[Rfam]
RNA sequence: UACCUGUAGUGGGUCUUCGUCAGAAGGUAUCUCGUCAUCCACAUGAUCGUUUCCAUUUAUCAACUUUGGCCGAGAGCCCAGUUCGAGUCCGGUGGUGUCCGUUUCCACUCUUUCGGGUAACCAAAGAUGCUGGUCGGAUCUAAGCAAUGAAUACUACUGUUGAGGGAAGCAAUUCUGCAAACGCGUAUUCACCAUUGGACGGCGGCGCUGGAAUACUCUUGCUACGGUUGGAAGCCAUCAUGCGGGCUGGGGUAUCAACUGACAUU
Number, nucleotide and partner (000 for none) at each position: 001u000002a014003c013004c012005u000006g000007u000008a000009g000010u000011g000012g004013g003014u002015c000016u000017u000018c000019g263020u262021c261022a260023g259024a000025a000026g256027g255028u254029a253030u252031c251032u000033c000034g000035u250036c249037a248038u246039c245040c000041a000042c242043a241044u240045g239046a238047u237048c000049g235050u234051u233052u232053c231054c230055a229056u000057u000058u000059a000060u000061c068062a067063a000064c000065u000066u000067u062068g061069g223070c000071c221072g220073a219074g218075a217076g216077c000078c211079c210080a209081g208082u207083u205084c204085g203086a000087g200088u199089c198090c197091g196092g195093u194094g193095g192096u000097g000098u138099c137100c136101g135102u000103u133104u132105c000106c129107a128108c000109u127110c126111u125112u124113u123114c000115g122116g121117g000118u000119a000120a000121c116122c115123a113124a112125a111126g110127a109128u107129g106130c000131u000132g104133g103134u000135c101136g100137g099138a098139u000140c144141u000142a000143a000144g140145c000146a000147a000148u191149g190150a189151a188152u187153a186154c185155u000156a000157c000158u183159g182160u181161u180162g000163a000164g000165g000166g175167a174168a173169g000170c000171a000172a000173u168174u167175c166176u000177g000178c000179a000180a161181a160182c159183g158184c000185g154186u153187a152188u151189u150190c149191a148192c095193c094194a093195u092196u091197g090198g089199a088200c087201g000202g000203c085204g084205g083206c000207g082208c081209u080210g079211g078212a000213a000214u000215a000216c076217u075218c074219u073220u072221g071222c000223u069224a000225c000226g000227g000228u000229u055230g054231g053232a052233a051234g050235c049236c000237a047238u046239c045240a044241u043242g042243c000244g000245g039246g038247c000248u037249g036250g035251g031252g030253u029254a028255u027256c026257a000258a000259c023260u022261g021262a020263c019264a000265u000266u000

Rfam assigns this 266-nucleotide RNA from Pleomassaria siparia to the family "Fungal signal recognition particle RNA". By type it is a non-coding RNA gene. Its family is annotated with SRP-dependent cotranslational protein targeting to membrane, signal sequence recognition, signal recognition particle, endoplasmic reticulum targeting and signal recognition particle, plasma membrane targeting in the Gene Ontology. The base pairs follow the family's consensus structure, which is taken from published work. Its Rfam clan is "SRP clan".